[Rfam]
RNA sequence: CCCCUUUCAAAACCCCCAAAUCAUCCCUAUAUUGGUCAUGUCUUCGGACUAUGGCGAUAAACGCGCGUGCAAUAAGCGGUUCGGACCCGGGGGCGGUACCCGGCGGCUCCACCAAAAGCAGGUUCAGGCUUUCACCGGCCUGUUUCUGACGGGGCCGAAAUAGGAUCGACGGACGUGUAAAGACGAUGCCUUUGCCGGAUUGGGCCCCCUCAGAAGCCCAUAUCACAUAGUUGCAAAUGACAACUUUGCUGAAGGUGAACUCCUGGCUGCGUAAGCGGUCCGGUAUUUACCGACUUAACUCCUAGGGUUUCAGACCCCUAGGCGGGGCCCGGAGGCGCCUGGCAACAGAAGCCUCCACC
Numbered sequence: 001c002c003c004c005u006u007u008c009a010a011a012a013c014c015c016c017c018a019a020a021u022c023a024u025c026c027c028u029a030u031a032u033u034g035g036u037c038a039u040g041u042c043u044u045c046g047g048a049c050u051a052u053g054g055c056g057a058u059a060a061a062c063g064c065g066c067g068u069g070c071a072a073u074a075a076g077c078g079g080u081u082c083g084g085a086c087c088c089g090g091g092g093g094c095g096g097u098a099c100c101c102g103g104c105g106g107c108u109c110c111a112c113c114a115a116a117a118g119c120a121g122g123u124u125c126a127g128g129c130u131u132u133c134a135c136c137g138g139c140c141u142g143u144u145u146c147u148g149a150c151g152g153g154g155c156c157g158a159a160a161u162a163g164g165a166u167c168g169a170c171g172g173a174c175g176u177g178u179a180a181a182g183a184c185g186a187u188g189c190c191u192u193u194g195c196c197g198g199a200u201u202g203g204g205c206c207c208c209c210u211c212a213g214a215a216g217c218c219c220a221u222a223u224c225a226c227a228u229a230g231u232u233g234c235a236a237a238u239g240a241c242a243a244c245u246u247u248g249c250u251g252a253a254g255g256u257g258a259a260c261u262c263c264u265g266g267c268u269g270c271g272u273a274a275g276c277g278g279u280c281c282g283g284u285a286u287u288u289a290c291c292g293a294c295u296u297a298a299c300u301c302c303u304a305g306g307g308u309u310u311c312a313g314a315c316c317c318c319u320a321g322g323c324g325g326g327g328c329c330c331g332g333a334g335g336c337g338c339c340u341g342g343c344a345a346c347a348g349a350a351g352c353c354u355c356c357a358c359c
Base pairs, nucleotide, nucleotide: 040049041048042047053196054195055194056193057192063189064188065187066185067184068183077175078174081172082171083170087103088102089101090100091099104157105156106155107154108153109152110151197208198207201220202219203218205216325340326339327338328337331356332355333354334353335352336351
Dot-bracket structure: .......................................(((....)))...(((((.....((((((........((..(((...(((((.......)))))(((((((........................................)))))))............))).)).......))).)))..)))))[[..(((.(.]].......).)))........................................................................................................[[[[..((((((]]]]..........))))))...